[Rfam]
RNA: RAGATH-18 RNA
RNA sequence: CUUGCGGAGAGUUAUAUAAACGAAAAUAGCUUAUGUGAAAUCGGACUCGAAGAAACAAGAA
Numbered sequence: 001c002u003u004g005c006g007g008a009g010a011g012u013u014a015u016a017u018a019a020a021c022g023a024a025a026a027u028a029g030c031u032u033a034u035g036u037g038a039a040a041u042c043g044g045a046c047u048c049g050a051a052g053a054a055a056c057a058a059g060a061a
Stems, first nucleotide, its partner, number of pairs: 001059004009048005021043003029036002